A member of the RNA family "Bacterial RNase P class A" from Ascidiaceihabitans donghaensis, 418 nucleotides long. Gene Ontology terms of the family: dimeric ribonuclease P complex, ribonuclease P activity and tRNA processing. A search with the family's covariance model found it, with a score of 290 bits. Rfam classes the family as a ribozyme.
RNA sequence: GCGGAAGGCUGGACGGCCGCUUAAACUUGGUUCUUGCGAACACGGGUGUAAGAGGAAAGUCCGGACUCCACAAAGCAACGGUGCCGGGUAACGCCCGGCGGGGGUAACCCUAGGGACAGCGCCACAGAAAACAAACCGCCCUGUGCGCGGAUCGGGCAACCGAUAUCACACGCAGGGUCAGGGUGAAACGGUGGGGUAAGAGCCCACCGCGGGACGGGCAACCGGACCGGCACGGCAAGCCCCACCGGGAGCAAUGCCAAAUAGGGACCGCGCGAGGGCAUGCCCUCGGGGCCGCUUUAGCCCCAGCAGGUCCGGGUUGGCAGCUAGAGAAGCAGAGGCAACUCUGUUUCAAGAUGAAUGGUCGUCUCGGGCAGGCAACUGCCUAUGACAGAAUCCGGCUUAUAGGCCUUCCGCGCAA
Numbered sequence: 001g002c003g004g005a006a007g008g009c010u011g012g013a014c015g016g017c018c019g020c021u022u023a024a025a026c027u028u029g030g031u032u033c034u035u036g037c038g039a040a041c042a043c044g045g046g047u048g049u050a051a052g053a054g055g056a057a058a059g060u061c062c063g064g065a066c067u068c069c070a071c072a073a074a075g076c077a078a079c080g081g082u083g084c085c086g087g088g089u090a091a092c093g094c095c096c097g098g099c100g101g102g103g104g105u106a107a108c109c110c111u112a113g114g115g116a117c118a119g120c121g122c123c124a125c126a127g128a129a130a131a132c133a134a135a136c137c138g139c140c141c142u143g144u145g146c147g148c149g150g151a152u153c154g155g156g157c158a159a160c161c162g163a164u165a166u167c168a169c170a171c172g173c174a175g176g177g178u179c180a181g182g183g184u185g186a187a188a189c190g191g192u193g194g195g196g197u198a199a200g201a202g203c204c205c206a207c208c209g210c211g212g213g214a215c216g217g218g219c220a221a222c223c224g225g226a227c228c229g230g231c232a233c234g235g236c237a238a239g240c241c242c243c244a245c246c247g248g249g250a251g252c253a254a255u256g257c258c259a260a261a262u263a264g265g266g267a268c269c270g271c272g273c274g275a276g277g278g279c280a281u282g283c284c285c286u287c288g289g290g291g292c293c294g295c296u297u298u299a300g301c302c303c304c305a306g307c308a309g310g311u312c313c314g315g316g317u318u319g320g321c322a323g324c325u326a327g328a329g330a331a332g333c334a335g336a337g338g339c340a341a342c343u344c345u346g347u348u349u350c351a352a353g354a355u356g357a358a359u360g361g362u363c364g365u366c367u368c369g370g371g372c373a374g375g376c377a378a379c380u381g382c383c384u385a386u387g388a389c390a391g392a393a394u395c396c397g398g399c400u401u402a403u404a405g406g407c408c409u410u411c412c413g414c415g416c417a418a
Stems, first nucleotide, its partner, number of pairs: 001414010011403001012366007020052004025047004057401003061398005066251004074297002079247005084098005099113001100111004114242002119240002121236003136182002138178008190208006209231001210229003215224003255322004265313005288304005330349008
Dot-bracket structure: ((((((((((((((((((.((((.((((...............)))).))))....[[[.[[[[[((((....[[...((((((((((.....)))))(((((....)))).)((...(((((............((((((((((.........................))))))))..)).......((((((.......))))))((((..(((....)))..))).)..)))..)))))))))))))...((((......(((((..................(((((...]]..)))))....))))).....)))).......((((((((....))))))))..........)))))))...........................]]]]]]]].).))))))))))....